[Rfam]
RNA sequence: GAGAUCUUUCGAUGAAGGGAGCAUCCGUCGACAGUCAGAAAAGAGGAACUGUCAUGGAGUUGCUCUCUUUAUUGAUUAGGUC
Numbered sequence: 001g002a003g004a005u006c007u008u009u010c011g012a013u014g015a016a017g018g019g020a021g022c023a024u025c026c027g028u029c030g031a032c033a034g035u036c037a038g039a040a041a042a043g044a045g046g047a048a049c050u051g052u053c054a055u056g057g058a059g060u061u062g063c064u065c066u067c068u069u070u071a072u073u074g075a076u077u078a079g080g081u082c
Stems, first nucleotide, its partner, number of pairs: 014070005020064003024058004030053003034049002
RNA: mir-46/mir-47/mir-281 microRNA precursor family